Shown here is a 112-nucleotide RNA sequence from Sporanaerobacter sp. PP17-6a, a member of the family "SAM riboswitch aptamer (S box leader)". The match comes from Rfam's covariance-model search (89 bits).
[Rfam]
RNA sequence: ACCUUAUCAAGAGUGGUGGAGGGAAUGGGCCCUAUGAAACCCGGCAACCUGAAAUGUGUACUUACUUCAAUGGUGCUAAAUCCCACAGAAAUGUUGUUCUGAAAGAUGAGGU
Number, nucleotide and partner (000 for none) at each position: 001a112002c111003c110004u109005u108006a107007u106008c105009a000010a000011g000012a000013g042014u000015g041016g040017u039018g000019g000020a000021g032022g031023g030024a000025a000026u085027g084028g083029g082030c023031c022032c021033u000034a000035u000036g000037a000038a000039a017040c016041c015042c013043g077044g076045c075046a074047a000048c073049c072050u069051g068052a067053a066054a000055u000056g000057u000058g000059u000060a000061c000062u000063u000064a000065c000066u053067u052068c051069a050070a000071u000072g049073g048074u046075g045076c044077u043078a000079a000080a000081u104082c029083c028084c027085a026086c101087a100088g099089a098090a097091a000092u000093g000094u000095u000096g000097u090098u089099c088100u087101g086102a000103a000104a081105g008106a007107u006108g005109a004110g003111g002112u001